[Rfam]
RNA sequence: GUCGGGAGGGCGACUAAUAGAAUACCCGCAAGGGGAAUAAGUCCGCGGUUUCGUUAAGCCGUUUCGAGCCUCCCGGCACCACACC
Number, nucleotide and partner (000 for none) at each position: 001g077002u076003c075004g074005g073006g072007a071008g070009g069010g000011c000012g043013a042014c041015u039016a038017a000018u000019a000020g000021a000022a000023u000024a000025c034026c033027c032028g000029c000030a000031a000032g027033g026034g025035g000036a000037a000038u016039a015040a000041g014042u013043c012044c000045g062046c061047g060048g059049u058050u000051u000052c000053g000054u000055u000056a000057a000058g049059c048060c047061g046062u045063u000064u000065c000066g000067a000068g000069c009070c008071u007072c006073c005074c004075g003076g002077c001078a000079c000080c000081a000082c000083a000084c000085c000
Overview: The record is an 85-nucleotide RNA from Pectobacterium carotovorum, which matches "sRNA-Xcc1" in Rfam. The sequence is in the family's curated seed alignment. A reference for the family is Wengelnik et al. (1996), "HrpG, a key hrp regulatory protein of Xanthomonas campestris pv. vesicatoria is homologous to two-component response regulators", Mol Plant Microbe Interact. The base pairs follow the family's consensus structure, which was predicted with RNAalifold. The family's RNA type in Rfam is small RNA.